RNA sequence: ACCGGUCUUCGGUAGUGGCUGCCGGGUCCCCGUCAGGGCGGGCCGGCCGCUUCGAUCGACGGCCGCA
Numbered sequence: 001a002c003c004g005g006u007c008u009u010c011g012g013u014a015g016u017g018g019c020u021g022c023c024g025g026g027u028c029c030c031c032g033u034c035a036g037g038g039c040g041g042g043c044c045g046g047c048c049g050c051u052u053c054g055a056u057c058g059a060c061g062g063c064c065g066c067a
Base pairs, nucleotide, nucleotide: 003065004064005063006062007061009059010058011057012056013055017051018050019049021047022046023045024044025043030041031040032039
RNA: Actino-pnp RNA